[Rfam]
RNA sequence: CGUCAACGCAAGGAGGCAGACAUGGGACGUACAUACCCCCUCAAUCUCCUGGUAGUCGGUGCUGCAUUUGCAUUCAUAGCCUCGAUGCUCUUCAUCUAGGCCAAAAGACUACCGGUCGUAUCUUGCAUCCAUGAACGUUUGAUAUGGACCUGAAUUUCGAAAGGCGCAUGUUCCCCGGAACAUGCGCCUU
Numbered sequence: 001c002g003u004c005a006a007c008g009c010a011a012g013g014a015g016g017c018a019g020a021c022a023u024g025g026g027a028c029g030u031a032c033a034u035a036c037c038c039c040c041u042c043a044a045u046c047u048c049c050u051g052g053u054a055g056u057c058g059g060u061g062c063u064g065c066a067u068u069u070g071c072a073u074u075c076a077u078a079g080c081c082u083c084g085a086u087g088c089u090c091u092u093c094a095u096c097u098a099g100g101c102c103a104a105a106a107g108a109c110u111a112c113c114g115g116u117c118g119u120a121u122c123u124u125g126c127a128u129c130c131a132u133g134a135a136c137g138u139u140u141g142a143u144a145u146g147g148a149c150c151u152g153a154a155u156u157u158c159g160a161a162a163g164g165c166g167c168a169u170g171u172u173c174c175c176c177g178g179a180a181c182a183u184g185c186g187c188c189u190u
Base pairs, nucleotide, nucleotide: 015048016047018045024040025039026038161190162189163188164187165186166185167184168183169182170181171180172179173178

The family of this 190-nucleotide RNA sequence from Aliirhizobium cellulosilyticum is "Rhizobiales sRNA Atu_C9". By type it is a small RNA. It scores 104 bits against the family's covariance model. The literature on the family includes a 2012 paper in RNA Biol by Wilms et al., "Deep sequencing uncovers numerous small RNAs on all four replicons of the plant pathogen Agrobacterium tumefaciens".